Rfam assigns this 108-nucleotide sequence from Bacillus sp. 165 to the family "SAM riboswitch aptamer (S box leader)".
RNA sequence: CUCUUAUCAAGAGCGGCGGAGGGAAAGGCCCGAUGAAGCCCGGCAACCUUCAAACAUUUGUUUGAAACGGUGCUACUACCUGCAGAACAGAGUUCUGAAUGAUAAGAU
Numbered sequence: 001c002u003c004u005u006a007u008c009a010a011g012a013g014c015g016g017c018g019g020a021g022g023g024a025a026a027g028g029c030c031c032g033a034u035g036a037a038g039c040c041c042g043g044c045a046a047c048c049u050u051c052a053a054a055c056a057u058u059u060g061u062u063u064g065a066a067a068c069g070g071u072g073c074u075a076c077u078a079c080c081u082g083c084a085g086a087a088c089a090g091a092g093u094u095c096u097g098a099a100u101g102a103u104a105a106g107a108u
Stems, first nucleotide, its partner, number of pairs: 002107007013041001015040003021031003026081003042074004047070002049066004078100001083097006

Gene Ontology term of the family: regulation of gene expression.
Pairs were carried over by alignment from the consensus structure, which is taken from published work.